[Rfam]
RNA sequence: UUAACCUAAUACAAUGAAAGCCCUGCCUCUCUUAUCAUCUUACGGUUCCAAGACCGCGCCAGUGAGAAUCAGGUUUCAGUUUUAAAA
Numbered sequence: 001u002u003a004a005c006c007u008a009a010u011a012c013a014a015u016g017a018a019a020g021c022c023c024u025g026c027c028u029c030u031c032u033u034a035u036c037a038u039c040u041u042a043c044g045g046u047u048c049c050a051a052g053a054c055c056g057c058g059c060c061a062g063u064g065a066g067a068a069u070c071a072g073g074u075u076u077c078a079g080u081u082u083u084a085a086a087a
Base pairs, nucleotide, nucleotide: 035066039062040061041058043056044055045054046053047052
Dot-bracket structure: ..................................(...(((.(((((....))))).)..))...).....................
Rfam assigns this 87-nucleotide RNA sequence from Peribacillus psychrosaccharolyticus to the family "BsrC". On this family, see Saito et al., Gene 2008: "Novel small RNA-encoding genes in the intergenic regions of Bacillus subtilis". Rfam classes the family as a small RNA. The family has 29 seed sequences and 572 matches in Rfam 15.1. About the family: The 301 nucleotide sequence from Kouji Nakamura has been trimmed to a highly conserved ~85 nucleotide long core to form this family.